[Rfam]
RNA sequence: UCGUGCUAGACGGGGAGGUAGCGGUGCCCUGAACUCGCAAUCCGCUCUAGCGAGGUUGAAUUCCUUUCUGAGGUUAGUAGGCUGUAGGGUCUGCCUUAAAUAAGUGGUGUUGACACCUGGGUCCUGCGCAAUGGGAACCCGUGAACCAUGUCAGGUCCGGAAGGAAGCAGCAUUAAGCGGACUCUCUCAUGUGCCGCAGGGUUGCCUGGGUCGAGCUAACUGUUUAAGUAACGCUUAUGGUGACUAAUCGAUGGAAGGUGCACGG
Numbered sequence: 001u002c003g004u005g006c007u008a009g010a011c012g013g014g015g016a017g018g019u020a021g022c023g024g025u026g027c028c029c030u031g032a033a034c035u036c037g038c039a040a041u042c043c044g045c046u047c048u049a050g051c052g053a054g055g056u057u058g059a060a061u062u063c064c065u066u067u068c069u070g071a072g073g074u075u076a077g078u079a080g081g082c083u084g085u086a087g088g089g090u091c092u093g094c095c096u097u098a099a100a101u102a103a104g105u106g107g108u109g110u111u112g113a114c115a116c117c118u119g120g121g122u123c124c125u126g127c128g129c130a131a132u133g134g135g136a137a138c139c140c141g142u143g144a145a146c147c148a149u150g151u152c153a154g155g156u157c158c159g160g161a162a163g164g165a166a167g168c169a170g171c172a173u174u175a176a177g178c179g180g181a182c183u184c185u186c187u188c189a190u191g192u193g194c195c196g197c198a199g200g201g202u203u204g205c206c207u208g209g210g211u212c213g214a215g216c217u218a219a220c221u222g223u224u225u226a227a228g229u230a231a232c233g234c235u236u237a238u239g240g241u242g243a244c245u246a247a248u249c250g251a252u253g254g255a256a257g258g259u260g261c262a263c264g265g
Stems, first nucleotide, its partner, number of pairs: 001265006009057003012030004017025001019023001034054005063258006072249005081241008092230002096227006104220002106217003115211008123200006129191002132189005139180004148173004156165003
This 265-nucleotide sequence from Bacillus sp. THAF10 belongs to the Rfam family "Bacterial large signal recognition particle RNA". Its family is annotated with SRP-dependent cotranslational protein targeting to membrane, signal sequence recognition and signal recognition particle, plasma membrane targeting in the Gene Ontology. A search with the family's covariance model found it, with a score of 234 bits. The family's RNA type in Rfam is non-coding RNA gene. The source organism's lineage runs through Bacteria, Bacillati, Bacilli, Bacillaceae and Bacillus.